[Rfam]
RNA: Group II catalytic intron D1-D4-4
Organism: Lentibacillus populi
RNA sequence: UAGUUGGUGAAAAUCCAACCCAAGUAAGUGUCGAGACGCUUGGUAGCUGACAGGCAACUGGUGGAGAAAUCCUAAGGUUGAAGCCAGUGACAAUGUAACUUCCUAUGAAGUGCCAGCAACUCAGCAGACCGUAACUUGC
Numbered sequence: 001u002a003g004u005u006g007g008u009g010a011a012a013a014u015c016c017a018a019c020c021c022a023a024g025u026a027a028g029u030g031u032c033g034a035g036a037c038g039c040u041u042g043g044u045a046g047c048u049g050a051c052a053g054g055c056a057a058c059u060g061g062u063g064g065a066g067a068a069a070u071c072c073u074a075a076g077g078u079u080g081a082a083g084c085c086a087g088u089g090a091c092a093a094u095g096u097a098a099c100u101u102c103c104u105a106u107g108a109a110g111u112g113c114c115a116g117c118a119a120c121u122c123a124g125c126a127g128a129c130c131g132u133a134a135c136u137u138g139c
Base pairs, nucleotide, nucleotide: 020043021042022041023040024039050088051087053085054084055080056079057078058077059076064071065070095113096112098111099110100109101108116132117131